[Rfam]
RNA sequence: AUGCCUUAAAUGUAUGAGUAAUGAAAAUAAUGAUCGAGGGUGACACCCGGAUCCUCACUGCUAAUGUGAGACGAAUUUUUGAGCAGGUGAAGUUUGCCCCUAAGAUGAUCUGCCUACUUUGCAGGAUGCCUGGGAUUUGCAAUCUGCCCA
Numbered sequence: 001a002u003g004c005c006u007u008a009a010a011u012g013u014a015u016g017a018g019u020a021a022u023g024a025a026a027a028u029a030a031u032g033a034u035c036g037a038g039g040g041u042g043a044c045a046c047c048c049g050g051a052u053c054c055u056c057a058c059u060g061c062u063a064a065u066g067u068g069a070g071a072c073g074a075a076u077u078u079u080u081g082a083g084c085a086g087g088u089g090a091a092g093u094u095u096g097c098c099c100c101u102a103a104g105a106u107g108a109u110c111u112g113c114c115u116a117c118u119u120u121g122c123a124g125g126a127u128g129c130c131u132g133g134g135a136u137u138u139g140c141a142a143u144c145u146g147c148c149c150a
Stems, first nucleotide, its partner, number of pairs: 004023001006021003032053004038047002054070005086148003091145002094142004100134002103131002106128002109125005

Record summary
The record is a 150-nucleotide RNA sequence from Orycteropus afer, which matches "U12 minor spliceosomal RNA" in Rfam. The source organism's lineage runs through Eukaryota, Eumetazoa, Euteleostomi, Theria and Orycteropus afer. Gene Ontology terms of the family: mRNA branch site recognition, pre-mRNA branch point binding and U12 snRNP. The pairing is the family consensus, mapped onto this sequence. Rfam 15.1 lists 2,106 matches to the family in 1,170 species.